[Rfam]
RNA sequence: UGCGAUGAUGAAUGAAUCCAAUGCUGAACUGAUGAUUGACCCCAGAGUGGCUGAGC
Number, nucleotide and partner (000 for none) at each position: 001u000002g024003c023004g000005a000006u000007g018008a017009u016010g000011a000012a000013u000014g000015a000016a009017u008018c007019c000020a000021a000022u000023g003024c002025u000026g000027a000028a000029c000030u000031g000032a000033u000034g000035a000036u000037u000038g000039a000040c000041c000042c000043c000044a000045g000046a000047g000048u000049g000050g000051c000052u000053g000054a000055g000056c000
This 56-nucleotide RNA sequence from Thermococcus barophilus belongs to the Rfam family "Small nucleolar RNA sR46".
The literature on the family includes a 2000 paper in Science by Omer et al., "Homologs of small nucleolar RNAs in Archaea".
Its family is annotated with nucleolus and RNA processing in the Gene Ontology.
Taxonomically the source falls in Thermococcus barophilus (Archaea, Methanobacteriota, Thermococcales, Thermococcaceae).